The family of this 326-nucleotide sequence from Acetobacter pomorum is "Alphaproteobacteria transfer-messenger RNA".
It is annotated as a non-coding RNA gene.
A search with the family's covariance model found it, with a score of 254 bits.

RNA sequence: CCGCUUGCAAUCCAUUACCGGACUUCCUAUGUUUGGGGUGUGAGAAGUUCGCUUCUGACUAUGGCAAUAAACGGGGUAUGGAAUAGGCGUAGUGGACCCGGGGGCGGUACCCGGCGUCUCCACCAAUCAUUCAGCCUGUAAAGGUUUGGACAGAUGGGGACGAAAUAGGCUCGACACGCGCAGUAAAGAUAUUCUUUUUGCCCGGUAUUGUACCACCGUUAUCGGGCUAUUUUUACAAGUGCCAAUGAUAACACUGAGGUGCUCGCUGUCGCUGCAUAAGCGAUAAGCGCGGUUCGGGAGGGCACCGGGCAACAGAAGCCCUCCCA
Number, nucleotide and partner (000 for none) at each position: 001c000002c000003g000004c000005u000006u000007g000008c000009a000010a000011u000012c000013c000014a000015u000016u000017a000018c000019c000020g000021g000022a000023c000024u000025u000026c000027c000028u000029a000030u000031g000032u000033u000034u000035g000036g000037g000038g000039u000040g059041u058042g000043a056044g055045a054046a053047g052048u000049u000050c000051g000052c047053u046054u045055c044056u043057g000058a041059c040060u000061a000062u000063g202064g201065c200066a199067a198068u000069a000070a000071a000072c000073g195074g194075g193076g192077u191078a190079u189080g000081g000082a000083a000084u000085a000086g000087g000088c180089g179090u178091a000092g177093u176094g175095g000096a000097c000098c114099c113100g112101g111102g110103g000104g000105c000106g000107g000108u000109a000110c102111c101112c100113g099114g098115c162116g161117u160118c159119u158120c157121c156122a000123c000124c000125a000126a000127u000128c000129a000130u000131u000132c000133a000134g000135c000136c000137u000138g000139u000140a000141a000142a000143g000144g000145u000146u000147u000148g000149g000150a000151c000152a000153g000154a000155u000156g121157g120158g119159g118160a117161c116162g115163a000164a000165a000166u000167a000168g000169g000170c000171u000172c000173g000174a000175c094176a093177c092178g090179c089180g088181c000182a000183g000184u000185a000186a000187a000188g000189a079190u078191a077192u076193u075194c074195u073196u000197u000198u067199u066200g065201c064202c063203c218204g217205g216206u215207a000208u229209u000210g227211u000212a000213c225214c224215a206216c205217c204218g203219u000220u000221a000222u000223c000224g214225g213226g000227c210228u000229a208230u000231u000232u000233u000234u000235a000236c000237a000238a000239g000240u000241g000242c000243c000244a000245a000246u000247g000248a000249u000250a000251a000252c000253a000254c000255u000256g000257a000258g000259g000260u000261g000262c000263u000264c000265g000266c000267u000268g000269u000270c000271g000272c000273u000274g000275c000276a000277u000278a000279a000280g000281c000282g000283a000284u000285a000286a000287g000288c000289g000290c307291g306292g305293u304294u000295c000296g000297g323298g322299a000300g320301g319302g000303c000304a293305c292306c291307g290308g000309g000310c000311a000312a000313c000314a000315g000316a000317a000318g000319c301320c300321c000322u298323c297324c000325c000326a000